[Rfam]
RNA: Bacterial large subunit ribosomal RNA, nucleotides 1727 to 2059
Organism: Borreliella burgdorferi
RNA sequence: CGAGAGAAUCCACGUUAAGGAACUCUGCAAAAUACGUACGUAACUUCGGGAUAAGUACGACCUAAGCAAUUAGGUAGCAUAAAAAUGGUCCAAACGACUGUUUACCAAAAACACAGGUCUCUGCAAAUCUGUAAAGAGAAGUAUAGGGACUGACACCUGCCCGGUGCUGGAAGGUUAAGAGGAGAUGUUAGUUUAUGCGAAGCAUUGAAUUUAAGCCCCAGUAAACGGCGGCCGUAACUAUAACGGUCCUAAGGUAGCGAAAUUCCUUGUCGGGUAAGUUCCGACCCGCACGAAUGGUGUAACGAUUUGGACGCUGUCUCAACGUGGAGCUCG
Numbered sequence: 001c002g003a004g005a006g007a008a009u010c011c012a013c014g015u016u017a018a019g020g021a022a023c024u025c026u027g028c029a030a031a032a033u034a035c036g037u038a039c040g041u042a043a044c045u046u047c048g049g050g051a052u053a054a055g056u057a058c059g060a061c062c063u064a065a066g067c068a069a070u071u072a073g074g075u076a077g078c079a080u081a082a083a084a085a086u087g088g089u090c091c092a093a094a095c096g097a098c099u100g101u102u103u104a105c106c107a108a109a110a111a112c113a114c115a116g117g118u119c120u121c122u123g124c125a126a127a128u129c130u131g132u133a134a135a136g137a138g139a140a141g142u143a144u145a146g147g148g149a150c151u152g153a154c155a156c157c158u159g160c161c162c163g164g165u166g167c168u169g170g171a172a173g174g175u176u177a178a179g180a181g182g183a184g185a186u187g188u189u190a191g192u193u194u195a196u197g198c199g200a201a202g203c204a205u206u207g208a209a210u211u212u213a214a215g216c217c218c219c220a221g222u223a224a225a226c227g228g229c230g231g232c233c234g235u236a237a238c239u240a241u242a243a244c245g246g247u248c249c250u251a252a253g254g255u256a257g258c259g260a261a262a263u264u265c266c267u268u269g270u271c272g273g274g275u276a277a278g279u280u281c282c283g284a285c286c287c288g289c290a291c292g293a294a295u296g297g298u299g300u301a302a303c304g305a306u307u308u309g310g311a312c313g314c315u316g317u318c319u320c321a322a323c324g325u326g327g328a329g330c331u332c333g
Base pairs, nucleotide, nucleotide: 001333002332003331004330009328010327011326012325013324014323015322016321018319019318020317035059036058037057038056039055044049060075061074062073063072064071065070076080088312089311090310091309092308093307094306095304096303099113100112101111116151117150118149119148120147121146122145123144124141128137129136130135154299155298156297157296159229160228161227164226165225166222167221168220169219170218173217174216175215179211180210184206185205186204187203188202191198192197230248231247232246233245234244235243249253259286269285270284271283272282273281274280
Dot-bracket structure: ((((....((((((((.(((..............(((((....(....).....)))))((((((....))))))(...).......(((((((((..(((.........)))..(((((((((...(((....)))...)..))))))))..((((.(((..(((((((..(((...((...(((((..((....))...)))))...))...))))))))..)))))((((((.......))))))(...).....(.........((((((.....))))))).........))))...)).)))))))....))).)))))))).))))